[Rfam]
This 72-nucleotide RNA from Psilopogon haemacephalus belongs to the Rfam family "Small nucleolar RNA SNORD77". The family is grouped with related families in Rfam's "SNORD77 clan". It scores 44 bits against the family's covariance model. Rfam's curators write: U77 belongs to the C/D family of snoRNAs. It is predicted to guide 2'O-ribose methylation of large 28S rRNA subunit at position A1521.
RNA sequence: AUACGGUGAUGAUGGCAUAGUUCAGCAGAACAUCUGGUGAUGAAGAAAAUUUCUUUCCUAUCUGAUGUAUCG
Number, nucleotide and partner (000 for none) at each position: 001a070002u069003a068004c067005g000006g041007u040008g000009a038010u037011g000012a000013u028014g000015g026016c025017a000018u000019a000020g000021u000022u000023c000024a000025g016026c015027a000028g013029a000030a000031c000032a000033u000034c000035u000036g000037g010038u009039g000040a007041u006042g000043a000044a000045g000046a059047a000048a000049a056050u000051u000052u000053c000054u000055u000056u049057c000058c000059u046060a000061u000062c000063u000064g000065a000066u000067g004068u003069a002070u001071c000072g000